[Rfam]
RNA sequence: CUCUGGUUUUGCAGGAAACCAGGGCAGAAGGAG
Numbered sequence: 001c002u003c004u005g006g007u008u009u010u011g012c013a014g015g016a017a018a019c020c021a022g023g024g025c026a027g028a029a030g031g032a033g
Stems, first nucleotide, its partner, number of pairs: 001024010
The record is a 33-nucleotide RNA, which matches "L31-Firmicutes ribosomal protein leader" in Rfam. The family is grouped with related families in Rfam's "Ribosomal Protein L31 Leader clan". By type it is a cis-regulatory leader.